[Rfam]
RNA: MIR2655 microRNA precursor family
Organism: Medicago truncatula
RNA sequence: GGCUUAAUUACUCUUUUGGUCCUUUAACUUAUUUUUUGGUUUCGUUUUGGUCCCUUAACUUAUUUUUUGAUUUCGUUUUGGUCCUUAACUCUAAUACAUUCAUCCUAACAUAAAGGACCAAAGUGGUUGACAGAGGAAGAGUUAAGGGACCAAAACGAAACCAAAAAAUAAGUUAAGGGACCAAAACGAAACUUUUAAUAGUUAAACGAAACCAAAAAAUAAGUUAAGGGACCAAAACGAAACUUUUAAUAGUUAGGGGA
Numbered sequence: 001g002g003c004u005u006a007a008u009u010a011c012u013c014u015u016u017u018g019g020u021c022c023u024u025u026a027a028c029u030u031a032u033u034u035u036u037u038g039g040u041u042u043c044g045u046u047u048u049g050g051u052c053c054c055u056u057a058a059c060u061u062a063u064u065u066u067u068u069g070a071u072u073u074c075g076u077u078u079u080g081g082u083c084c085u086u087a088a089c090u091c092u093a094a095u096a097c098a099u100u101c102a103u104c105c106u107a108a109c110a111u112a113a114a115g116g117a118c119c120a121a122a123g124u125g126g127u128u129g130a131c132a133g134a135g136g137a138a139g140a141g142u143u144a145a146g147g148g149a150c151c152a153a154a155a156c157g158a159a160a161c162c163a164a165a166a167a168a169u170a171a172g173u174u175a176a177g178g179g180a181c182c183a184a185a186a187c188g189a190a191a192c193u194u195u196u197a198a199u200a201g202u203u204a205a206a207c208g209a210a211a212c213c214a215a216a217a218a219a220u221a222a223g224u225u226a227a228g229g230g231a232c233c234a235a236a237a238c239g240a241a242a243c244u245u246u247u248a249a250u251a252g253u254u255a256g257g258g259g260a
Base pairs, nucleotide, nucleotide: 014237015236016235018233019232020231022229023228024227025226026225027224028223029222030221031220032219033218034217036215037214038213039212040211041210042209043208044207045206046205047204